[Rfam]
This 113-nucleotide RNA sequence from Pseudomonas indica belongs to the Rfam family "Pseudomon-groES RNA". The family's consensus secondary structure is taken from published work.
RNA sequence: GUAGCGGUCACCGCAAGGUCCCUGUCGCAUCGACAGGCUGUCUUCUGCGGCUCGCUCAGCGGGCCGUAACCGGCAACGCCGGAUUUGCUAACCCGCCGGUGGGCUCCACCGGA
Numbered sequence: 001g002u003a004g005c006g007g008u009c010a011c012c013g014c015a016a017g018g019u020c021c022c023u024g025u026c027g028c029a030u031c032g033a034c035a036g037g038c039u040g041u042c043u044u045c046u047g048c049g050g051c052u053c054g055c056u057c058a059g060c061g062g063g064c065c066g067u068a069a070c071c072g073g074c075a076a077c078g079c080c081g082g083a084u085u086u087g088c089u090a091a092c093c094c095g096c097c098g099g100u101g102g103g104c105u106c107c108a109c110c111g112g113a
Base pairs, nucleotide, nucleotide: 010019011018012017021037022036023035024034025033026032046068047067048066049065050064051063052062053061054060070082071081072080073079096112097111098110099109100108